[Rfam]
RNA: mir-544 microRNA precursor family
RNA sequence: AUCCCCUGGGGAUCUGGUUAAAAUGCAGAUUCUUGUUGAGUAGGUCUGGGUGGAGCCUGAGAUUCUGCAUUUUUGACAAGCUCCCAGGGGAUGCUGA
Dot-bracket structure: ..(((...(((..((.(((((((.(((((.(((((......................))))).))))).))).)))).)).)))...))).......